[Rfam]
RNA sequence: GUAAUGGUAAGGAAAGGGAAGAGUAGAUAGGGAAACUCGAGUACAGCGAAUUAGGGAUGGUGUAAGCCUAAUCCGAGUUCUAUCGAAAAUCACCCUGGAACUGUCACCUGAAAUUGGAGUAAGGUCGACCGCGUCAUCUACGUUACGGAUGGUUAAGAGGUUUUGCUGUCCUUUUUGCGGCGGCAUAAACCAGUAGGGUGGUACCGCGGGAAACCUUCUCGUCCCUAAG
Numbered sequence: 001g002u003a004a005u006g007g008u009a010a011g012g013a014a015a016g017g018g019a020a021g022a023g024u025a026g027a028u029a030g031g032g033a034a035a036c037u038c039g040a041g042u043a044c045a046g047c048g049a050a051u052u053a054g055g056g057a058u059g060g061u062g063u064a065a066g067c068c069u070a071a072u073c074c075g076a077g078u079u080c081u082a083u084c085g086a087a088a089a090u091c092a093c094c095c096u097g098g099a100a101c102u103g104u105c106a107c108c109u110g111a112a113a114u115u116g117g118a119g120u121a122a123g124g125u126c127g128a129c130c131g132c133g134u135c136a137u138c139u140a141c142g143u144u145a146c147g148g149a150u151g152g153u154u155a156a157g158a159g160g161u162u163u164u165g166c167u168g169u170c171c172u173u174u175u176u177g178c179g180g181c182g183g184c185a186u187a188a189a190c191c192a193g194u195a196g197g198g199u200g201g202u203a204c205c206g207c208g209g210g211a212a213a214c215c216u217u218c219u220c221g222u223c224c225c226u227a228a229g
Stems, first nucleotide, its partner, number of pairs: 007101002015096004026084006041073001050072006104128002106125004130142002160190004195226004206222005
Overview
Rfam assigns this 229-nucleotide sequence from Thermoactinomyces daqus to the family "T-box leader". The match comes from Rfam's covariance-model search (110 bits). The literature on the family includes a 1994 paper in J Bacteriol by Grundy et al., "Interaction between the acceptor end of tRNA and the T box stimulates antitermination in the Bacillus subtilis tyrS gene: a new role for the discriminator base". Rfam's curators write: Uncharged tRNA acts as the effector for transcription antitermination of genes in the T-box leader family. T-boxes are found upstream of many aminoacyl-tRNA synthetase genes and some amino acid biosynthetic genes usually in Gram-positive bacteria. The anticodon of a specific tRNA base pairs to a specifier sequence within the T-box motif, and the NCCA acceptor tail of the tRNA base pairs to a conserved bulge in the T-box antiterminator hairpin. NCBI's taxonomy places the organism under Bacteria, Bacillati, Caryophanales, Thermoactinomycetaceae, Thermoactinomyces. The family's consensus secondary structure is taken from published work. The family's RNA type in Rfam is cis-regulatory leader.